The family of this 100-nucleotide RNA from Thermacetogenium phaeum is "Pyrrolysine insertion sequence mttB". Pairs were carried over by alignment from the consensus structure, which was predicted with CMfinder. Its family is annotated with pyrrolysine incorporation in the Gene Ontology. It scores 86 bits against the family's covariance model. Taxonomically the source falls in Thermacetogenium phaeum (Bacteria, Bacillati, Bacillota, Thermoanaerobacterales). The literature on the family includes a 2013 paper in BMC Bioinformatics by Theil Have et al., "Effects of using coding potential, sequence conservation and mRNA structure conservation for predicting pyrroly-sine containing genes".
RNA sequence: UAGGCUGACAGCAAGAUUCCCGACGCCCAGGCGGCUCACGAAAAGACCAUCACCGGUCUGAUGGCGGCGCUAGGUGGCGCGAACCUGAUUUACGGACUGG
Numbered sequence: 001u002a003g004g005c006u007g008a009c010a011g012c013a014a015g016a017u018u019c020c021c022g023a024c025g026c027c028c029a030g031g032c033g034g035c036u037c038a039c040g041a042a043a044a045g046a047c048c049a050u051c052a053c054c055g056g057u058c059u060g061a062u063g064g065c066g067g068c069g070c071u072a073g074g075u076g077g078c079g080c081g082a083a084c085c086u087g088a089u090u091u092a093c094g095g096a097c098u099g100g
Base pairs, nucleotide, nucleotide: 003012025032033062035060077098080095
Dot-bracket structure: ..(........)............(......)(.(........................).)..............(..(..............)..)..